RNA sequence: AACACGUUCCUUAGAUCCACCUCUGGAGGGCACUGUUCUUUGAGCAGUGUUCCUCAGCAGCUUUUUUGGCUGUACAGUUGGAGGUGCUUGAGUCAUUGGCGUGUGAGAGCAGUCUACCUGACCCCCAGCCCACAUGCUGCACUGGCAACCCUGUCAUCACACAGGGAGCUUCUAGUGUGGUUAGCCUGGGGGGCGGACAUA
Dot-bracket structure: .(((((((.(((((...((((((((.(((.((((((((...))))))))..)))..((((((.....)))))).....)))))))).))))).....))))))).............(((.(..(.((.(.......((((((((..(.(((((......)))))....).))))))))....).)).)..).))).....
RNA: Small nucleolar RNA SNORA53
Organism: Parambassis ranga